[Rfam]
RNA sequence: CUCUAAGGAGGAAGCUGUGUGUGCCCUGCUUUCUGGGCCACUGAAAAACUCAGAUGGACUUGUGGAAUCUGAAAACAGAG
Numbered sequence: 001c002u003c004u005a006a007g008g009a010g011g012a013a014g015c016u017g018u019g020u021g022u023g024c025c026c027u028g029c030u031u032u033c034u035g036g037g038c039c040a041c042u043g044a045a046a047a048a049c050u051c052a053g054a055u056g057g058a059c060u061u062g063u064g065g066a067a068u069c070u071g072a073a074a075a076c077a078g079a080g
Stems, first nucleotide, its partner, number of pairs: 001080004